RNA sequence: GGUACAUGGACCCUUCACUUCAGGCGGGGGCGGAAGACCCAUGAAUGACGCCUUUGGGCGUCUUGGGGUGAAGCCUGGCCCUGUCGCUGCAUCCCUGUGAGGCGCGCGGCAGGGGAGGCCGGACAGUCCACUCGUCCGAAUCCGACAGCUAAUUUCGCCGGCGUCGAGAGGACCU
Numbered sequence: 001g002g003u004a005c006a007u008g009g010a011c012c013c014u015u016c017a018c019u020u021c022a023g024g025c026g027g028g029g030g031c032g033g034a035a036g037a038c039c040c041a042u043g044a045a046u047g048a049c050g051c052c053u054u055u056g057g058g059c060g061u062c063u064u065g066g067g068g069u070g071a072a073g074c075c076u077g078g079c080c081c082u083g084u085c086g087c088u089g090c091a092u093c094c095c096u097g098u099g100a101g102g103c104g105c106g107c108g109g110c111a112g113g114g115g116a117g118g119c120c121g122g123a124c125a126g127u128c129c130a131c132u133c134g135u136c137c138g139a140a141u142c143c144g145a146c147a148g149c150u151a152a153u154u155u156c157g158c159c160g161g162c163g164u165c166g167a168g169a170g171g172a173c174c175u
Base pairs, nucleotide, nucleotide: 007160011029012028013027030158031157032156033155034154035153040065041064066143067142068141074118075117076116121137122136123135124134
RNA: c-di-AMP riboswitch aptamer (ydaO/yuaA leader)